RNA sequence: CUGCAAAAUGGCGAUGGAUUUCCGCCAGGCUUAAGCCAAACCGUCUUUCUUUUUAGAAAAGACUGAUGAUUCCUAUCUUGCA
Number, nucleotide and partner (000 for none) at each position: 001c000002u000003g000004c000005a000006a000007a000008a000009u000010g026011g025012c024013g023014a000015u000016g073017g072018a071019u000020u069021u068022c000023c013024g012025c011026c010027a000028g000029g000030c000031u000032u000033a000034a000035g000036c000037c000038a000039a000040a000041c000042c000043g063044u062045c061046u060047u059048u058049c000050u000051u000052u000053u000054u000055a000056g000057a000058a048059a047060a046061g045062a044063c043064u000065g000066a000067u000068g021069a020070u000071u018072c017073c016074u000075a000076u000077c000078u000079u000080g000081c000082a000
Shown here is an 82-nucleotide RNA from Aristophania vespae, a member of the family "Fluoride riboswitch aptamer (crcB RNA motif)". Gene Ontology terms of the family: response to fluoride and positive regulation of gene expression.